[Rfam]
RNA: Repression of heat shock gene expression (ROSE) element
RNA sequence: CCGGGCGCUUUAAGGGCCCGGUGCGGGCGCUGGCGGGUGUCCGGCGCGCUGCUCAUUCCCAUGUUGCUCAAUGAGGAUGUGGCUAUGAGAA
Numbered sequence: 001c002c003g004g005g006c007g008c009u010u011u012a013a014g015g016g017c018c019c020g021g022u023g024c025g026g027g028c029g030c031u032g033g034c035g036g037g038u039g040u041c042c043g044g045c046g047c048g049c050u051g052c053u054c055a056u057u058c059c060c061a062u063g064u065u066g067c068u069c070a071a072u073g074a075g076g077a078u079g080u081g082g083c084u085a086u087g088a089g090a091a
Base pairs, nucleotide, nucleotide: 001021002020003019004018005017006016008015009014024051025050026049027047028046029045030044031043032042033041052089053088054087055086056085059082060081061080062079063078064077065076067075068074069073